[Rfam]
RNA: permuted transfer-messenger RNA
RNA sequence: GGCGAUAAACGCGGUCGUAAUAAGCCGAUCGGACCCGGGGGCAGUACCCGGCGCCUCCACCACAUGCCCGUGUAGCGCACAGCUCGGCGCGGGCAUCUGAUGGGGGCGAACUAGGAUCGACGAAGGUGUAAAGGGCUUAGCUUUCGCUCGGCAUGGUUCCGCCGUCAUCGGGCCAUUCAGAAUAGUUGCCAAUGACAACUAUGCUGAGGCUGCUCUCGCUGCGUAA
Numbered sequence: 001g002g003c004g005a006u007a008a009a010c011g012c013g014g015u016c017g018u019a020a021u022a023a024g025c026c027g028a029u030c031g032g033a034c035c036c037g038g039g040g041g042c043a044g045u046a047c048c049c050g051g052c053g054c055c056u057c058c059a060c061c062a063c064a065u066g067c068c069c070g071u072g073u074a075g076c077g078c079a080c081a082g083c084u085c086g087g088c089g090c091g092g093g094c095a096u097c098u099g100a101u102g103g104g105g106g107c108g109a110a111c112u113a114g115g116a117u118c119g120a121c122g123a124a125g126g127u128g129u130a131a132a133g134g135g136c137u138u139a140g141c142u143u144u145c146g147c148u149c150g151g152c153a154u155g156g157u158u159c160c161g162c163c164g165u166c167a168u169c170g171g172g173c174c175a176u177u178c179a180g181a182a183u184a185g186u187u188g189c190c191a192a193u194g195a196c197a198a199c200u201a202u203g204c205u206g207a208g209g210c211u212g213c214u215c216u217c218g219c220u221g222c223g224u225a226a
Base pairs, nucleotide, nucleotide: 001148002147003146004145005144013137014136015135016134025126026125029123030122031121035051036050037049038048039047052108053107054106055105056104057103058102149164150163151162152161